This 111-nucleotide RNA from Papaver nudicaule belongs to the Rfam family "Small nucleolar RNA Z152/R70/R12/". A search with the family's covariance model found it, with a score of 58 bits. The organism belongs to Papaver, within Eukaryota. For this family Rfam cites "Identification of 66 box C/D snoRNAs in Arabidopsis thaliana: extensive gene duplications generated multiple isoforms predicting new ribosomal RNA 2'-O-methylation sites" (Barneche et al., J Mol Biol, 2001). Gene Ontology terms of the family: nucleolus and RNA processing. It is annotated as a C/D-box small nucleolar RNA.
RNA sequence: GAUGCAAUGAGGAGUUGAAGAACACGAGAGGGUGUUUAGGACAGUGGCAAAGAUCUAAAAAUCUUUACCAUGAGUCUUUACCAAAAAUGACUUCUCAUUCUAAUGAACAUC
Numbered sequence: 001g002a003u004g005c006a007a008u009g010a011g012g013a014g015u016u017g018a019a020g021a022a023c024a025c026g027a028g029a030g031g032g033u034g035u036u037u038a039g040g041a042c043a044g045u046g047g048c049a050a051a052g053a054u055c056u057a058a059a060a061a062u063c064u065u066u067a068c069c070a071u072g073a074g075u076c077u078u079u080a081c082c083a084a085a086a087a088u089g090a091c092u093u094c095u096c097a098u099u100c101u102a103a104u105g106a107a108c109a110u111c
Base pairs, nucleotide, nucleotide: 001111002110003109004108